[Rfam]
RNA sequence: AGAAUCCACUAGGGGCGCCCUUAACGGGCUGAGAUAAGGUGAAGUCGCUUGGUUGGCCACUGGCCGGCACAUCCGCUUCACCUUGGUCCCUUCGAACCUGAUCUGGGUUAUGCCAGCGUAGGAAAGUGGGAUAUGCCUUGG
Numbered sequence: 001a002g003a004a005u006c007c008a009c010u011a012g013g014g015g016c017g018c019c020c021u022u023a024a025c026g027g028g029c030u031g032a033g034a035u036a037a038g039g040u041g042a043a044g045u046c047g048c049u050u051g052g053u054u055g056g057c058c059a060c061u062g063g064c065c066g067g068c069a070c071a072u073c074c075g076c077u078u079c080a081c082c083u084u085g086g087u088c089c090c091u092u093c094g095a096a097c098c099u100g101a102u103c104u105g106g107g108u109u110a111u112g113c114c115a116g117c118g119u120a121g122g123a124a125a126g127u128g129g130g131a132u133a134u135g136c137c138u139u140g141g
Base pairs, nucleotide, nucleotide: 006129007128008127009126010125011091012090013089014088016085017029018028019027020026036084037083038082039081040080041079042078043077044076045075097122098121099120100119103116104115105114106113
Shown here is a 141-nucleotide RNA sequence from Paenibacillus sabuli, a member of the family "TPP riboswitch aptamer (THI element)". The organism belongs to Paenibacillus, within Bacteria. A search with the family's covariance model found it, with a score of 76 bits.